[Rfam]
RNA: Trypanosomatid mitochondrial large subunit ribosomal RNA
Organism: Phytomonas sp. Hart1
RNA sequence: UUUCAAAAACGUUUAUUAAAGGCGUUAGUCUAAGAACUUUAUUUAAGAUCAUUCUAGUAAAUAUUUUUAUAUUUUUUUAAUUCUAUUUAAUAUGUUAAUUACCCUAUAAUGUUAUAUAUAGUAGCAUAGUAAUUUGUUAAUUAAUUAUUAAAGUGUUCCAUAGAAAAUUUUAAAAUUAAAGCAAUACGUGUAAUAUAUAAAUUAAAAUAAAGAUUUUAAAAAAAGUCAAAUCAUUAAAAUAGGGCAAGUCCUACUCUCCUUUACAAAGAGACCAUAUAAUAUGUAUUUGUAUGUUUGAUUGGGGCAAUACUAUAUUUAAAUAUAUAGAAAAAGAACUAUAAUUAUUGAAAUAAUAAAAGGUUCGAGCAGGUUAACAAGCAUCAAAAAAAAUGUGUUUCAUCGUCUACUUAUUAUUAUAAUUGAUUGUUCAUCAAAAGUAUAAUUCGUUAGUUGGGUUAAAAUCGUUGUAAAGCAGAUUUGUUUAUAUAUUUAAUGUAUAUAUAUAAAAUAAAUUACAUUAGUACGCAAGGAUCAUUUAUUAGAUAACUUAUUAUAAAU
Numbered sequence: 001u002u003u004c005a006a007a008a009a010c011g012u013u014u015a016u017u018a019a020a021g022g023c024g025u026u027a028g029u030c031u032a033a034g035a036a037c038u039u040u041a042u043u044u045a046a047g048a049u050c051a052u053u054c055u056a057g058u059a060a061a062u063a064u065u066u067u068u069a070u071a072u073u074u075u076u077u078u079a080a081u082u083c084u085a086u087u088u089a090a091u092a093u094g095u096u097a098a099u100u101a102c103c104c105u106a107u108a109a110u111g112u113u114a115u116a117u118a119u120a121g122u123a124g125c126a127u128a129g130u131a132a133u134u135u136g137u138u139a140a141u142u143a144a145u146u147a148u149u150a151a152a153g154u155g156u157u158c159c160a161u162a163g164a165a166a167a168u169u170u171u172a173a174a175a176u177u178a179a180a181g182c183a184a185u186a187c188g189u190g191u192a193a194u195a196u197a198u199a200a201a202u203u204a205a206a207a208u209a210a211a212g213a214u215u216u217u218a219a220a221a222a223a224a225g226u227c228a229a230a231u232c233a234u235u236a237a238a239a240u241a242g243g244g245c246a247a248g249u250c251c252u253a254c255u256c257u258c259c260u261u262u263a264c265a266a267a268g269a270g271a272c273c274a275u276a277u278a279a280u281a282u283g284u285a286u287u288u289g290u291a292u293g294u295u296u297g298a299u300u301g302g303g304g305c306a307a308u309a310c311u312a313u314a315u316u317u318a319a320a321u322a323u324a325u326a327g328a329a330a331a332a333g334a335a336c337u338a339u340a341a342u343u344a345u346u347g348a349a350a351u352a353a354u355a356a357a358a359g360g361u362u363c364g365a366g367c368a369g370g371u372u373a374a375c376a377a378g379c380a381u382c383a384a385a386a387a388a389a390a391u392g393u394g395u396u397u398c399a400u401c402g403u404c405u406a407c408u409u410a411u412u413a414u415u416a417u418a419a420u421u422g423a424u425u426g427u428u429c430a431u432c433a434a435a436a437g438u439a440u441a442a443u444u445c446g447u448u449a450g451u452u453g454g455g456u457u458a459a460a461a462u463c464g465u466u467g468u469a470a471a472g473c474a475g476a477u478u479u480g481u482u483u484a485u486a487u488a489u490u491u492a493a494u495g496u497a498u499a500u501a502u503a504u505a506a507a508a509u510a511a512a513u514u515a516c517a518u519u520a521g522u523a524c525g526c527a528a529g530g531a532u533c534a535u536u537u538a539u540u541a542g543a544u545a546a547c548u549u550a551u552u553a554u555a556a557a558u
Base pairs, nucleotide, nucleotide: 240253241252242251243250255476256475257474259472260471261470262469263468264467265466266465268463269462273283274282275281287307288306289305290304310327311326312325313324314323315322333363334362335361336360337359376397377396378395379394380393381392400454401453402452404450405449406448407446410443411442412441413440414439421430422429423428